[Rfam]
RNA sequence: GUAAAAACUGUGACGGGAAAUAGUAGAUUUAUGUUUCAUUACAGAAAGAAGGCGGUUGAUGAAAGCCUUUAUGAUAGUAUUUCGAACCUGCUCCCUGAGUUUCGCAGGAAUAAAAGUGCGACGGUAUCCCCCGUUAAAAGGUUUUGAGAGGAUAUUUUUUUAUAUUUUAAAAAAUAUCAAUUAGGGUGGCACCGCCGAAAAUUUACCUUGGUCCCUUUU
Numbered sequence: 001g002u003a004a005a006a007a008c009u010g011u012g013a014c015g016g017g018a019a020a021u022a023g024u025a026g027a028u029u030u031a032u033g034u035u036u037c038a039u040u041a042c043a044g045a046a047a048g049a050a051g052g053c054g055g056u057u058g059a060u061g062a063a064a065g066c067c068u069u070u071a072u073g074a075u076a077g078u079a080u081u082u083c084g085a086a087c088c089u090g091c092u093c094c095c096u097g098a099g100u101u102u103c104g105c106a107g108g109a110a111u112a113a114a115a116g117u118g119c120g121a122c123g124g125u126a127u128c129c130c131c132c133g134u135u136a137a138a139a140g141g142u143u144u145u146g147a148g149a150g151g152a153u154a155u156u157u158u159u160u161u162a163u164a165u166u167u168u169a170a171a172a173a174a175u176a177u178c179a180a181u182u183a184g185g186g187u188g189g190c191a192c193c194g195c196c197g198a199a200a201a202u203u204u205a206c207c208u209u210g211g212u213c214c215c216u217u218u219u
Stems, first nucleotide, its partner, number of pairs: 007100002015095004026083002030079002037073003048070006103120004122133003151178010183216004194212005
A member of the RNA family "T-box leader" from Tyzzerella sp. An114, 219 nucleotides long. The source organism's lineage runs through Bacteria, Bacillati, Bacillota, Clostridia and Tyzzerella. By type it is a cis-regulatory leader. Uncharged tRNA acts as the effector for transcription antitermination of genes in the T-box leader family.